[Rfam]
RNA sequence: UGCUGUUUCUUUGGUAUUCUAGCUGUAGAUUGUUUUCACAUAUUGUAUCAUCUAAAGCUUUUAUACCAAAGCUCCAGCU
Numbered sequence: 001u002g003c004u005g006u007u008u009c010u011u012u013g014g015u016a017u018u019c020u021a022g023c024u025g026u027a028g029a030u031u032g033u034u035u036u037c038a039c040a041u042a043u044u045g046u047a048u049c050a051u052c053u054a055a056a057g058c059u060u061u062u063a064u065a066c067c068a069a070a071g072c073u074c075c076a077g078c079u
Stems, first nucleotide, its partner, number of pairs: 002078004009071009021059004026054005